[Rfam]
RNA sequence: GGGAAGUGAUGAAUUGUAAUCGGUCCGUGUUUCUGAGACGCUGAUGUUACCAUUACGAAGGUUUCUGAUCCC
Numbered sequence: 001g002g003g004a005a006g007u008g009a010u011g012a013a014u015u016g017u018a019a020u021c022g023g024u025c026c027g028u029g030u031u032u033c034u035g036a037g038a039c040g041c042u043g044a045u046g047u048u049a050c051c052a053u054u055a056c057g058a059a060g061g062u063u064u065c066u067g068a069u070c071c072c
Base pairs, nucleotide, nucleotide: 001072002071003070004069
This 72-nucleotide RNA sequence from Chara braunii belongs to the Rfam family "Small nucleolar RNA SNORD18". On this family, see Prislei et al., Nucleic Acids Res 1993: "Two different snoRNAs are encoded in introns of amphibian and human L1 ribosomal protein genes". Its Rfam clan is "SNORD18 clan". Its family is annotated with RNA processing and nucleolus in the Gene Ontology.